[Rfam]
RNA sequence: CAGUGGGAUGCAAAGUUCCCACCGUGGUAAUUGCCUGUUCACCACGAAGUCCAGGCUCGGCGAGCAGGGGUGACCCGAGACGCCAAGCGAGCCGGAAGAAGGCCGAAAGGCCGAGACAGAGUGCAGGCCUUAACGCAA
Numbered sequence: 001c002a003g004u005g006g007g008a009u010g011c012a013a014a015g016u017u018c019c020c021a022c023c024g025u026g027g028u029a030a031u032u033g034c035c036u037g038u039u040c041a042c043c044a045c046g047a048a049g050u051c052c053a054g055g056c057u058c059g060g061c062g063a064g065c066a067g068g069g070g071u072g073a074c075c076c077g078a079g080a081c082g083c084c085a086a087g088c089g090a091g092c093c094g095g096a097a098g099a100a101g102g103c104c105g106a107a108a109g110g111c112c113g114a115g116a117c118a119g120a121g122u123g124c125a126g127g128c129c130u131u132a133a134c135g136c137a138a
Stems, first nucleotide, its partner, number of pairs: 023046005054093005059084004068075002101112003115131002
This 138-nucleotide sequence from Desulfonatronum thiosulfatophilum belongs to the Rfam family "Group II catalytic intron D1-D4-4". Gene Ontology term of the family: Group II intron splicing. Rfam's curators write: Group II introns are found in rRNA, tRNA and mRNA of organelles in fungi, plants and protists, and also in mRNA in bacteria. For this family Rfam cites "The ins and outs of group II introns" (Bonen and Vogel, Trends Genet, 2001). The match comes from Rfam's covariance-model search (57 bits). Rfam 15.1 lists 840 matches to the family in 506 species. The source organism's lineage runs through Bacteria, Pseudomonadati, Thermodesulfobacteriota, Desulfonatronaceae and Desulfonatronum. Pairs were carried over by alignment from the consensus structure.